Rfam assigns this 82-nucleotide RNA from Tenebrionibacter intestinalis to the family "OmrA-B family". The source organism's lineage runs through Bacteria, Pseudomonadati, Enterobacterales, Enterobacteriaceae and Tenebrionibacter.

[Rfam]
RNA sequence: CCCAGAGGUAUUGAUAGGUGGCGUUGGCGUUAUGCCGAACGCAGCGAUUUCACCAGCCUGCGCGGAUGCGCAGGUUUUUUUU
Numbered sequence: 001c002c003c004a005g006a007g008g009u010a011u012u013g014a015u016a017g018g019u020g021g022c023g024u025u026g027g028c029g030u031u032a033u034g035c036c037g038a039a040c041g042c043a044g045c046g047a048u049u050u051c052a053c054c055a056g057c058c059u060g061c062g063c064g065g066a067u068g069c070g071c072a073g074g075u076u077u078u079u080u081u082u
Stems, first nucleotide, its partner, number of pairs: 017054004024038005056075008